[Rfam]
RNA sequence: UGCUGCUGUGAUGACUUGUGUUUUAUAUCAAUGGGAAUCUCUCUGACAUGAGAAUGAAAGAGAAUCCAAUUUCUGAUGCAGCU
Numbered sequence: 001u002g003c004u005g006c007u008g009u010g011a012u013g014a015c016u017u018g019u020g021u022u023u024u025a026u027a028u029c030a031a032u033g034g035g036a037a038u039c040u041c042u043c044u045g046a047c048a049u050g051a052g053a054a055u056g057a058a059a060g061a062g063a064a065u066c067c068a069a070u071u072u073c074u075g076a077u078g079c080a081g082c083u
Base pairs, nucleotide, nucleotide: 002082003081004080005079006078
RNA: Small nucleolar RNA SNORD79
Organism: Leptobrachium leishanense